The family of this 174-nucleotide RNA sequence from Catenovulum maritimum is "Lysine riboswitch aptamer".
Pairs were carried over by alignment from the consensus structure, which is taken from published work.
The match comes from Rfam's covariance-model search (81 bits).
NCBI's taxonomy places the organism under Bacteria, Pseudomonadati, Gammaproteobacteria, Alteromonadaceae, Catenovulum.
RNA sequence: AAGAUCGGAAGAGGUGCGAAACUCAGGUAGUUAAUUGGAAAAGUCUAAGCUUUGAAGAUAAUUAGCGAGGGGAGUGAUCGCCGAGGAGUUAAUAUGCUUAGGACAUAUUACUUCGGUUGUUGAGGUUGAAUCCUUGCAAUUGUCACCAAUUAAGGGUGGAGAGCUUUCGGCAGU
Numbered sequence: 001a002a003g004a005u006c007g008g009a010a011g012a013g014g015u016g017c018g019a020a021a022c023u024c025a026g027g028u029a030g031u032u033a034a035u036u037g038g039a040a041a042a043g044u045c046u047a048a049g050c051u052u053u054g055a056a057g058a059u060a061a062u063u064a065g066c067g068a069g070g071g072g073a074g075u076g077a078u079c080g081c082c083g084a085g086g087a088g089u090u091a092a093u094a095u096g097c098u099u100a101g102g103a104c105a106u107a108u109u110a111c112u113u114c115g116g117u118u119g120u121u122g123a124g125g126u127u128g129a130a131u132c133c134u135u136g137c138a139a140u141u142g143u144c145a146c147c148a149a150u151u152a153a154g155g156g157u158g159g160a161g162a163g164c165u166u167u168c169g170g171c172a173g174u
Stems, first nucleotide, its partner, number of pairs: 006169006016081004021075004030066008085114005091109006115141006123134003143159005
Dot-bracket structure: .....((((((....((((.((((.....((((((((.....................)))))))).....))))..))))...(((((.((((((.......)))))))))))((((((..(((......))).)))))).(((((.......)))))....)))))).....